Notes: The family of this 108-nucleotide sequence from Actinomyces sp. oral taxon 448 is "Actinomyces-1 RNA". Rfam classes the family as a small RNA. The base pairs follow the family's consensus structure, which is taken from published work. Taxonomically the source falls in Actinomyces sp. oral taxon 448 (Bacteria, Bacillati, Actinomycetota, Actinomycetes).

RNA sequence: ACUGCCGCCGGACGGUACGGACCGUGAGGGUUGGGGAACCCGAGGACCGGCUCGUACCGAGAGUCGUCGGGGUUGCAGGGAACCCCGACGCUCGCUCCGGCGAGGGAG
Numbered sequence: 001a002c003u004g005c006c007g008c009c010g011g012a013c014g015g016u017a018c019g020g021a022c023c024g025u026g027a028g029g030g031u032u033g034g035g036g037a038a039c040c041c042g043a044g045g046a047c048c049g050g051c052u053c054g055u056a057c058c059g060a061g062a063g064u065c066g067u068c069g070g071g072g073u074u075g076c077a078g079g080g081a082a083c084c085c086c087g088a089c090g091c092u093c094g095c096u097c098c099g100g101c102g103a104g105g106g107a108g
Base pairs, nucleotide, nucleotide: 006102007101008100009099010098011097012096013059014058015057016056018054019053020052022050023049024048028041029040030039031038032037061093062092063091065090066089069086070085071084072083073082